[Rfam]
RNA sequence: GAGUGUGCUUGUGUGGCGAGUCUAACCCGAUCAUCGGGGAAGGCAUAGGGAAACCGACAUGGCCGCAGUGCUUUGCACGAGGGCCGCCGUCUUCAAGGGCGGGGAGUCACACGGGCACGACCCGAAUCCGGACGAUCUACGCGUGGGCAAGAUGAAGCGUGGCGAAAGCUACGUGGAAGUCUGUUAGGGUUGGUGUUUUACAAUACCCUCCCGUGAUCUACGUGUAGGGGUGAAAGGCCCAUCGAGUCCGGCAACAGCUGGUU
Numbered sequence: 001g002a003g004u005g006u007g008c009u010u011g012u013g014u015g016g017c018g019a020g021u022c023u024a025a026c027c028c029g030a031u032c033a034u035c036g037g038g039g040a041a042g043g044c045a046u047a048g049g050g051a052a053a054c055c056g057a058c059a060u061g062g063c064c065g066c067a068g069u070g071c072u073u074u075g076c077a078c079g080a081g082g083g084c085c086g087c088c089g090u091c092u093u094c095a096a097g098g099g100c101g102g103g104g105a106g107u108c109a110c111a112c113g114g115g116c117a118c119g120a121c122c123c124g125a126a127u128c129c130g131g132a133c134g135a136u137c138u139a140c141g142c143g144u145g146g147g148c149a150a151g152a153u154g155a156a157g158c159g160u161g162g163c164g165a166a167a168g169c170u171a172c173g174u175g176g177a178a179g180u181c182u183g184u185u186a187g188g189g190u191u192g193g194u195g196u197u198u199u200a201c202a203a204u205a206c207c208c209u210c211c212c213g214u215g216a217u218c219u220a221c222g223u224g225u226a227g228g229g230g231u232g233a234a235a236g237g238c239c240c241a242u243c244g245a246g247u248c249c250g251g252c253a254a255c256a257g258c259u260g261g262u263u
Stems, first nucleotide, its partner, number of pairs: 005118013020044004026038004048055002061085004068078004088101004121261002124258001128251006137227011148215001150182004157174007187212003192208002195206002229239003
A member of the RNA family "Archaeal large subunit ribosomal RNA" from Halorhabdus utahensis, 263 nucleotides of a longer RNA. Clan: LSU clan. The source organism's lineage runs through Archaea, Methanobacteriota, Halobacteriales, Haloarculaceae and Halorhabdus utahensis.